[Rfam]
RNA sequence: GCCCUAUAUCCACAAGAUCUGAGUGGUCACUUGCUUUUGAGAACAAGAUAGGGUGU
Numbered sequence: 001g002c003c004c005u006a007u008a009u010c011c012a013c014a015a016g017a018u019c020u021g022a023g024u025g026g027u028c029a030c031u032u033g034c035u036u037u038u039g040a041g042a043a044c045a046a047g048a049u050a051g052g053g054u055g056u
Stems, first nucleotide, its partner, number of pairs: 001054007010026004022038001028041001030047004035043002
RNA: salivarius-1 RNA
Organism: Ligilactobacillus salivarius